[Rfam]
RNA sequence: CGCCCACACGCGGGAGAGAUCCGUGGCUGUAGGUCACGGGCGCCGAAGGAGCAACACCUCUCCGUCAACCUCUCAGGCACCCAGGACCGCGCGUGACCC
Numbered sequence: 001c002g003c004c005c006a007c008a009c010g011c012g013g014g015a016g017a018g019a020u021c022c023g024u025g026g027c028u029g030u031a032g033g034u035c036a037c038g039g040g041c042g043c044c045g046a047a048g049g050a051g052c053a054a055c056a057c058c059u060c061u062c063c064g065u066c067a068a069c070c071u072c073u074c075a076g077g078c079a080c081c082c083a084g085g086a087c088c089g090c091g092c093g094u095g096a097c098c099c
Stems, first nucleotide, its partner, number of pairs: 006094002009091005020040007042078003045074002049072003056065002
A member of the RNA family "Glycine riboswitch aptamer" from Mycobacterium manitobense, 99 nucleotides long. Lineage of the source: Bacteria > Bacillati > Actinomycetota > Mycobacteriaceae > Mycobacterium. Rfam 15.1 lists 9,425 matches to the family in 5,228 species.